Shown here is a 122-nucleotide RNA from Ancylomarina longa, a member of the family "Group II catalytic intron D1-D4-2". For this family Rfam cites "Control of branch-site choice by a group II intron" (Chu et al., EMBO J, 2001).
[Rfam]
RNA sequence: GUUGUAAGCUAGACCCACCGAUAUCGUUUUACAGGAAAGGGCAUCAAACCACCUAAAGGUGCUGUGGUAAAGAGCCAUGGUAUUGAGCGUUUAGGAAACGGCUAGUCAAGAAUUAGUCAGGU
Numbered sequence: 001g002u003u004g005u006a007a008g009c010u011a012g013a014c015c016c017a018c019c020g021a022u023a024u025c026g027u028u029u030u031a032c033a034g035g036a037a038a039g040g041g042c043a044u045c046a047a048a049c050c051a052c053c054u055a056a057a058g059g060u061g062c063u064g065u066g067g068u069a070a071a072g073a074g075c076c077a078u079g080g081u082a083u084u085g086a087g088c089g090u091u092u093a094g095g096a097a098a099c100g101g102c103u104a105g106u107c108a109a110g111a112a113u114u115a116g117u118c119a120g121g122u
Base pairs, nucleotide, nucleotide: 001018002017004015020045021044022043024041025040027038028037029036030035050121052095053094054093055092056091057090058084059083061081062080063079065077066076067075068074100118101117102116103115104114105113
Record summary:
Rfam links the family to the GO term Group II intron splicing.